[Rfam]
RNA: Small nucleolar RNA SNORD99
RNA sequence: GCUGGUCGAUGAUGACCUAUUUUAAAUUGUGGACUUCUUGGAUGAUGCUCGCGGAUAUGGGACUGAGAUCAGCA
Numbered sequence: 001g002c003u004g005g006u007c008g009a010u011g012a013u014g015a016c017c018u019a020u021u022u023u024a025a026a027u028u029g030u031g032g033a034c035u036u037c038u039u040g041g042a043u044g045a046u047g048c049u050c051g052c053g054g055a056u057a058u059g060g061g062a063c064u065g066a067g068a069u070c071a072g073c074a
Base pairs, nucleotide, nucleotide: 001073002072003071004070005069